[Rfam]
RNA sequence: AAAGAUGCCGCCUAGGGUUCCGGUUUGUAAAACGUCUGGUCCGAGAGGUAGCGUACGGUAUUGCUGUACUGUAUACACGGAGGGAUAAAAGCCCGGGAGAA
Dot-bracket structure: ......((.(((..((...(((((((...))))..).)).))....))).))((((((((......)))))))).(.[...(((.......))).)..]..
Rfam assigns this 101-nucleotide sequence from Niallia taxi to the family "Guanidine-I riboswitch aptamer".
The literature on the family includes a 2004 paper in Proc Natl Acad Sci U S A by Barrick et al., "New RNA motifs suggest an expanded scope for riboswitches in bacterial genetic control".
The match comes from Rfam's covariance-model search (89 bits).
The source organism's lineage runs through Bacteria, Bacillota, Caryophanales, Bacillaceae and Niallia.
Gene Ontology term of the family: regulation of gene expression.